[Rfam]
RNA sequence: UAGAACUGAUAUUCUAAGAGUGGAAUGAAGGGGUAACGCCCUGAAACGCUCCCCUAAUACUCCUACAUGCUAUGUAAUUUCAUUUUAUGAAAUUGGCUAAAGCAUAGUAUGAAGCUAGGUGAAGUCGGCAGAAAGAUACCGUAAAGUGUAAAAACACUACGAAAGCUGUCCAGAGGUGGAUGGUGUAUCCCAUAUGCCGGGGGUCUAUAAA
Numbered sequence: 001u002a003g004a005a006c007u008g009a010u011a012u013u014c015u016a017a018g019a020g021u022g023g024a025a026u027g028a029a030g031g032g033g034u035a036a037c038g039c040c041c042u043g044a045a046a047c048g049c050u051c052c053c054c055u056a057a058u059a060c061u062c063c064u065a066c067a068u069g070c071u072a073u074g075u076a077a078u079u080u081c082a083u084u085u086u087a088u089g090a091a092a093u094u095g096g097c098u099a100a101a102g103c104a105u106a107g108u109a110u111g112a113a114g115c116u117a118g119g120u121g122a123a124g125u126c127g128g129c130a131g132a133a134a135g136a137u138a139c140c141g142u143a144a145a146g147u148g149u150a151a152a153a154a155c156a157c158u159a160c161g162a163a164a165g166c167u168g169u170c171c172a173g174a175g176g177u178g179g180a181u182g183g184u185g186u187a188u189c190c191c192a193u194a195u196g197c198c199g200g201g202g203g204u205c206u207a208u209a210a211a
Base pairs, nucleotide, nucleotide: 018051019050020049021048022047030042031041032040033039052203053202054201055200062119063118064117065116066111067110068109069108070107071106072105073104074103075102078099126199127198128197129196130195135189136188137187138186139185140161141160142159147156148155165184166183167182168181169180170179171178172177
Dot-bracket structure: .................(((((.......((((.....))))....)))))((((......((((((((((((((..(....................)..))))))))))....))))......(((((....((((((((....((......))..)))...((((((((....))))))))))))).....)))))))))........